[Rfam]
RNA: Actinobacteria sRNA Ms_IGR-5
Organism: Nocardiopsis eucommiae
Nucleotides: 189
Stems, first nucleotide, its partner, number of pairs: 014059006060101003065096004072092001074090001119183013133151004138146001
Number, partner (000 for none) and nucleotide at each position: 001000a002000c003000g004000c005000a006000g007000g008000a009000a010000a011000g012000g013000a014059g015058g016057u017056g018055g019054u020000c021000c022000g023000a024000g025000a026000g027000a028000u029000g030000a031000u032000u033000c034000a035000u036000u037000c038000a039000a040000g041000g042000a043000c044000u045000g046000g047000c048000g049000a050000g051000g052000u053000g054019g055018c056017c057016g058015u059014c060101c061100g062099c063000u064000a065096g066095g067094g068093c069000g070000a071000c072092g073000c074090c075000g076000a077000g078000c079000g080000u081000u082000c083000g084000c085000u086000c087000g088000a089000c090074g091000u092072c093068g094067u095066u096065c097000g098000c099062g100061c101060g102000a103000a104000u105000a106000c107000c108000u109000g110000a111000c112000g113000g114000a115000c116000a117000c118000c119183c120182g121181a122180a123179c124178c125177c126176c127175g128174g129173g130172c131171u132000g133151c134150c135149g136148g137000a138146c139000c140000u141000g142000g143000u144000c145000c146138g147000a148136c149135c150134g151133g152000c153000c154000c155000c156000g157000c158000a159000c160000a161000g162000g163000c164000g165000g166000g167000a168000c169000a170000g171131a172130g173129c174128c175127c176126g177125g178124g179123g180122u181121u182120c183119g184000c185000c186000c187000a188000u189000g